[Rfam]
RNA sequence: GGAGCCAUAGGGAGAGACCCCAAUCCAGCCUUAGGAAAAGAAACCUGCCACAGGAGUCUUGGAGAACGGCGACUAUCCUAAUGGCUUA
Numbered sequence: 001g002g003a004g005c006c007a008u009a010g011g012g013a014g015a016g017a018c019c020c021c022a023a024u025c026c027a028g029c030c031u032u033a034g035g036a037a038a039a040g041a042a043a044c045c046u047g048c049c050a051c052a053g054g055a056g057u058c059u060u061g062g063a064g065a066a067c068g069g070c071g072a073c074u075a076u077c078c079u080a081a082u083g084g085c086u087u088a
Stems, first nucleotide, its partner, number of pairs: 002087003006083003010079004015074002018071001020069002024065002029062002038060004044054004
The family of this 88-nucleotide RNA sequence from Equus caballus is "mir-9014 microRNA precursor family". Pairs were carried over by alignment from the consensus structure, which was predicted with RNAalifold. The organism belongs to Equus, within Eukaryota.